[Rfam]
Shown here is a 48-nucleotide RNA from Dianthovirus dianthi, a member of the family "Exoribonuclease-resistant RNA (xrRNA) plant-infecting virus (class 3)". Rfam links the family to the GO term viral RNA genome replication. Rfam's curators write: Exoribonuclease-resistant RNA (xrRNA) plant-infecting virus (class 3) is a ncRNA that was reported in Plant viruses. The organism belongs to Dianthovirus dianthi, within Viruses. For this family Rfam cites "The pseudoknot structure of a viral RNA reveals a conserved mechanism for programmed exoribonuclease resistance" (Gezelle et al., bioRxiv [Preprint], 2024). The base pairs follow the family's consensus structure, which is taken from published work. Rfam classes the family as a cis-regulatory element.
RNA sequence: CCGUAGCCGCCAACAAAGUUGCAAGAGCGGGCGUUGCUAGCCUUUGCC
Number, nucleotide and partner (000 for none) at each position: 001c000002c036003g035004u033005a000006g000007c030008c029009g000010c000011c025012a000013a000014c046015a045016a044017a043018g042019u000020u000021g000022c000023a000024a000025g011026a000027g000028c000029g008030g007031g000032c000033g004034u000035u003036g002037c000038u000039a000040g000041c000042c018043u017044u016045u015046g014047c000048c000